[Rfam]
RNA: mir-19 microRNA precursor family
Organism: Loxodonta africana
RNA sequence: CAUUACAGUUAGUUUUGCAGGUUUGCAUUGCAGUAUAUGUAUAUGGCUGUGCAAAUCCAUGCAAAACUGACGGUGAUG
Numbered sequence: 001c002a003u004u005a006c007a008g009u010u011a012g013u014u015u016u017g018c019a020g021g022u023u024u025g026c027a028u029u030g031c032a033g034u035a036u037a038u039g040u041a042u043a044u045g046g047c048u049g050u051g052c053a054a055a056u057c058c059a060u061g062c063a064a065a066a067c068u069g070a071c072g073g074u075g076a077u078g
Stems, first nucleotide, its partner, number of pairs: 003076004008071012020058002022055007030047002